[Rfam]
RNA sequence: ACCCUGCCACAACGGCUUCCUGGCGUGGCAGAUGUCAUUCUAAUGGAGCG
Numbered sequence: 001a002c003c004c005u006g007c008c009a010c011a012a013c014g015g016c017u018u019c020c021u022g023g024c025g026u027g028g029c030a031g032a033u034g035u036c037a038u039u040c041u042a043a044u045g046g047a048g049c050g
Stems, first nucleotide, its partner, number of pairs: 004031007013022002015049003019046002
RNA: SAM/SAH riboswitch aptamer
Organism: Thalassococcus sp. S3